[Rfam]
RNA sequence: GUGGUAGAGGUUCGAAGACCAUCCCUCUAUAAAAAACUAGGCAAUU
Numbered sequence: 001g002u003g004g005u006a007g008a009g010g011u012u013c014g015a016a017g018a019c020c021a022u023c024c025c026u027c028u029a030u031a032a033a034a035a036a037c038u039a040g041g042c043a044a045u046u
Stems, first nucleotide, its partner, number of pairs: 006028005016038001
PreQ1 (pre queuosine) riboswitch aptamer: a 46-nucleotide sequence from Clostridium taeniosporum.
The base pairs follow the family's consensus structure.
The match comes from Rfam's covariance-model search (53 bits).
This family is a bacterial riboswitch that binds to the metabolite preQ1, an intermediate in the biosynthesis of the modified nucleoside queuosine from GTP. One example of this riboswitch is located in the leader of the Bacillus subtilis ykvJKLM (queCDEF) operon which encodes four genes necessary for queuosine production. PreQ1 binding to the riboswitch aptamer is thought to induce premature transcription termination within the leader to down-regulate expression of these genes.